[Rfam]
RNA sequence: UGGCUAUGAUUACUGAUUACCUGAGAAAAAGAUUUGAUGAAAUCUUAAGAAAACUCUAGAUAGUCAGAUGAAAAGCUGG
Numbered sequence: 001u002g003g004c005u006a007u008g009a010u011u012a013c014u015g016a017u018u019a020c021c022u023g024a025g026a027a028a029a030a031g032a033u034u035u036g037a038u039g040a041a042a043u044c045u046u047a048a049g050a051a052a053a054c055u056c057u058a059g060a061u062a063g064u065c066a067g068a069u070g071a072a073a074a075g076c077u078g079g
Base pairs, nucleotide, nucleotide: 001078002077003076004075